Shown here is a 156-nucleotide sequence from Acetobacter orleanensis, a member of the family "6S / SsrS RNA". The family's consensus secondary structure is taken from published work. From the family's description: E. coli 6S RNA was the first non coding RNA to be sequenced, but its function was unknown until recently.
RNA sequence: GCGGAGCUGCCCGGCACGUCAGGCGAGUCAUCCCCUGGGCCGAUAAGCACUUCCUAAGGGAGCUGGCUCUGUUGUGGCCCUGGUCACAUUAUCCGGCGCCCACCUGCACACGCAGGUCCUGGAGGUUGAAAGACCAACGGCCAUGGCGGCUUCGCA
Numbered sequence: 001g002c003g004g005a006g007c008u009g010c011c012c013g014g015c016a017c018g019u020c021a022g023g024c025g026a027g028u029c030a031u032c033c034c035c036u037g038g039g040c041c042g043a044u045a046a047g048c049a050c051u052u053c054c055u056a057a058g059g060g061a062g063c064u065g066g067c068u069c070u071g072u073u074g075u076g077g078c079c080c081u082g083g084u085c086a087c088a089u090u091a092u093c094c095g096g097c098g099c100c101c102a103c104c105u106g107c108a109c110a111c112g113c114a115g116g117u118c119c120u121g122g123a124g125g126u127u128g129a130a131a132g133a134c135c136a137a138c139g140g141c142c143a144u145g146g147c148g149g150c151u152u153c154g155c156a
Stems, first nucleotide, its partner, number of pairs: 002154010013142003017139003032124001034122002037119005058101003062097005071090001073088006